[Rfam]
The family of this 95-nucleotide sequence from Gemmobacter megaterium is "Rhodo-rpoB RNA". The source organism's lineage runs through Bacteria, Pseudomonadati, Rhodobacterales, Paracoccaceae and Gemmobacter. The match comes from Rfam's covariance-model search (73 bits).

Nucleotides: 095
Base pairs, nucleotide, nucleotide: 001043002042003041004040005039010031011030012029013028014027015026016025017024066095067094068093070090071088072087073086074085075084
Number, partner (000 for none) and nucleotide at each position: 001043g002042g003041u004040u005039c006000g007000g008000g009000a010031g011030c012029c013028c014027g015026c016025c017024g018000g019000u020000g021000g022000g023000a024017c025016g026015g027014c028013g029012g030011g031010c032000a033000g034000g035000c036000a037000u038000g039005g040004a041003a042002c043001c044000c045000a046000a047000g048000a049000c050000a051000u052000c053000c054000g055000c056000g057000u058000u059000c060000g061000a062000a063000a064000g065000g066095c067094g068093c069000u070090c071088c072087u073086c074085c075084g076000u077000g078000g079000c080000c081000c082000g083000a084075c085074g086073g087072a088071g089000a090070g091000a092000c093068g094067c095066g